A member of the RNA family "STAXI RNA" from Salmonella enterica, 157 nucleotides long.
The sequence is in the family's curated seed alignment.
Taxonomically the source falls in Salmonella enterica subsp. enterica serovar Typhi (Bacteria, Pseudomonadati, Gammaproteobacteria, Salmonella).
It is annotated as a small RNA.
Rfam 15.1 lists 130 matches to the family in 68 species.
[Rfam]
RNA sequence: CGUUGCCUUAGGCAACCACCAAUGUUCCAGUGAUCUGAGAGGAACGCCUUUGGGUGAUCACAUAACCAAUGUUCCGGCAAUCUGAGAGGAACGCCUUCGGGUGAUUGCACACCAAUGUCACCGUAGCCUGAGAGGUGACGCCUUCGGGUGGUACAGC
Numbered sequence: 001c002g003u004u005g006c007c008u009u010a011g012g013c014a015a016c017c018a019c020c021a022a023u024g025u026u027c028c029a030g031u032g033a034u035c036u037g038a039g040a041g042g043a044a045c046g047c048c049u050u051u052g053g054g055u056g057a058u059c060a061c062a063u064a065a066c067c068a069a070u071g072u073u074c075c076g077g078c079a080a081u082c083u084g085a086g087a088g089g090a091a092c093g094c095c096u097u098c099g100g101g102u103g104a105u106u107g108c109a110c111a112c113c114a115a116u117g118u119c120a121c122c123g124u125a126g127c128c129u130g131a132g133a134g135g136u137g138a139c140g141c142c143u144u145c146g147g148g149u150g151g152u153a154c155a156g157c
Base pairs, nucleotide, nucleotide: 002016003015004014005013006012024045025044026043027042028041030061031060032059033058034057035056046055047054048053071092072091073090074089075088077108078107079106080105081104082103093102094101095100117139118138119137120136121135123154124153125152127151128150140149141148142147